[Rfam]
RNA sequence: GGUAUUGUUUACCCCAUGAUAAGCCCCGGAAACUUAUUAUGCUUAUAUAACAAUGACAGAGUUUUUAAAUAAAAA
Numbered sequence: 001g002g003u004a005u006u007g008u009u010u011a012c013c014c015c016a017u018g019a020u021a022a023g024c025c026c027c028g029g030a031a032a033c034u035u036a037u038u039a040u041g042c043u044u045a046u047a048u049a050a051c052a053a054u055g056a057c058a059g060a061g062u063u064u065u066u067a068a069a070u071a072a073a074a075a
Stems, first nucleotide, its partner, number of pairs: 006071006015041009
Dot-bracket structure: .....((((((...(((((((((.........)))))))))........................))))))....
RNA: Ribosomal protein L13 leader